[Rfam]
RNA sequence: CAAGCAAAGGGUAAUGGUGUUCUACCCAUUUGAACCGACCAAAAUAUUUCAUUUUGGUAUGAUGACGCCUACCGAUAA
Numbered sequence: 001c002a003a004g005c006a007a008a009g010g011g012u013a014a015u016g017g018u019g020u021u022c023u024a025c026c027c028a029u030u031u032g033a034a035c036c037g038a039c040c041a042a043a044a045u046a047u048u049u050c051a052u053u054u055u056g057g058u059a060u061g062a063u064g065a066c067g068c069c070u071a072c073c074g075a076u077a078a
Base pairs, nucleotide, nucleotide: 010026011025012024013023016069017068018067019066020065021064038058039057040056041055042054043053044052045051
This 78-nucleotide sequence from Pedobacter cryophilus belongs to the Rfam family "Fluoride riboswitch aptamer (crcB RNA motif)".